This 100-nucleotide sequence from Paenibacillus phyllosphaerae belongs to the Rfam family "Purine riboswitch aptamer".

[Rfam]
RNA sequence: AGCAAGCUCAUAUCGACUGUUCGUAUAACCUCGGAGAUAAGGUCCGAGGGUCUCUACAAGGAACCACAAAUUCCUGGCUACGAACGGGUUGCCCUUCGCA
Dot-bracket structure: .................((((((((...(((((((.......))))))).........(((((.......)))))...))))))))..............